[Rfam]
RNA sequence: ACCUUAUCAAGAGCGGCGGAGGAAACAGGUCCUGUGAAGCCCGGCAACCUGACUAUUUCGGUCAAGGUGCUAAUUCCUGCGGUUUAUCCGGAAGAUGAGGA
Numbered sequence: 001a002c003c004u005u006a007u008c009a010a011g012a013g014c015g016g017c018g019g020a021g022g023a024a025a026c027a028g029g030u031c032c033u034g035u036g037a038a039g040c041c042c043g044g045c046a047a048c049c050u051g052a053c054u055a056u057u058u059c060g061g062u063c064a065a066g067g068u069g070c071u072a073a074u075u076c077c078u079g080c081g082g083u084u085u086a087u088c089c090g091g092a093a094g095a096u097g098a099g100g101a
Stems, first nucleotide, its partner, number of pairs: 002100007013042001015041003021032003026079004043071004048067002050064004075093001080090003
SAM riboswitch aptamer (S box leader): a 101-nucleotide sequence from Ruminococcus flavefaciens.
The source organism's lineage runs through Bacteria, Bacillota, Oscillospiraceae, Ruminococcus and Ruminococcus flavefaciens.